[Rfam]
RNA sequence: AAGUGAAAUAUUUUGCAUGUGCAAAAUGUGAAAUAACCGCUCCGCGGUUGUGAAAUUUUCUGCUUCGCAGAAAGUGAAAUGAAAU
Numbered sequence: 001a002a003g004u005g006a007a008a009u010a011u012u013u014u015g016c017a018u019g020u021g022c023a024a025a026a027u028g029u030g031a032a033a034u035a036a037c038c039g040c041u042c043c044g045c046g047g048u049u050g051u052g053a054a055a056u057u058u059u060c061u062g063c064u065u066c067g068c069a070g071a072a073a074g075u076g077a078a079a080u081g082a083a084a085u
Stems, first nucleotide, its partner, number of pairs: 008029008033051006055075009
RNA: Gut-1 RNA
Organism: Clostridium sp. CAG:413